[Rfam]
RNA: Small nucleolar RNA snoR14
RNA sequence: GUGAUGUGAAGAUUCAUUGUCUGUCAAUCCACUGACAUACAUCCGUGAUGUUACUCAUGAUAUUCCGAGAUGAUCUGAUCAU
Number, nucleotide and partner (000 for none) at each position: 001g082002u081003g080004a079005u000006g000007u000008g000009a000010a000011g000012a000013u000014u000015c000016a000017u000018u000019g000020u000021c000022u000023g000024u000025c000026a000027a000028u000029c000030c000031a000032c000033u000034g000035a000036c000037a000038u000039a000040c000041a000042u000043c000044c000045g000046u000047g000048a000049u000050g000051u000052u000053a000054c000055u000056c000057a000058u000059g000060a000061u000062a000063u000064u000065c000066c000067g000068a000069g000070a000071u000072g000073a000074u000075c000076u000077g000078a000079u004080c003081a002082u001